[Rfam]
RNA sequence: UAAGGAGACAUCCAAAGGGAUCGCAUUGAUCCUUCACACCUUCAUACUCAUCUUCUUCUUUUUCAUCACUGAUACAUUCUUGGUAAGUUUGCUUUGAUGAUCAAGUAAGAACAUGUAUCUGUUGUUGAUGAUGAGGAUAAGUUUAUAAACAUGUUUGGGAUCAUGCAAUCUCUUUGGAAGCCUCCUC
Numbered sequence: 001u002a003a004g005g006a007g008a009c010a011u012c013c014a015a016a017g018g019g020a021u022c023g024c025a026u027u028g029a030u031c032c033u034u035c036a037c038a039c040c041u042u043c044a045u046a047c048u049c050a051u052c053u054u055c056u057u058c059u060u061u062u063u064c065a066u067c068a069c070u071g072a073u074a075c076a077u078u079c080u081u082g083g084u085a086a087g088u089u090u091g092c093u094u095u096g097a098u099g100a101u102c103a104a105g106u107a108a109g110a111a112c113a114u115g116u117a118u119c120u121g122u123u124g125u126u127g128a129u130g131a132u133g134a135g136g137a138u139a140a141g142u143u144u145a146u147a148a149a150c151a152u153g154u155u156u157g158g159g160a161u162c163a164u165g166c167a168a169u170c171u172c173u174u175u176g177g178a179a180g181c182c183u184c185c186u187c
Base pairs, nucleotide, nucleotide: 003186004185005184006183009180011178012177013176014175015174016173017172018171019170020169021168023166024165025164026163028162029161030160031159032158036155
Dot-bracket structure: ..((((..(.(((((((((((.((((.(((((...(......................................................................................................................)..))))))))).))))))))))).)..)))).

Source information
A member of the RNA family "mir-393 microRNA precursor family" from Papaver nudicaule, 187 nucleotides long. The literature on the family includes a 2012 paper in J Plant Physiol by Kruszka et al., "Role of microRNAs and other sRNAs of plants in their changing environments". Pairs were carried over by alignment from the consensus structure.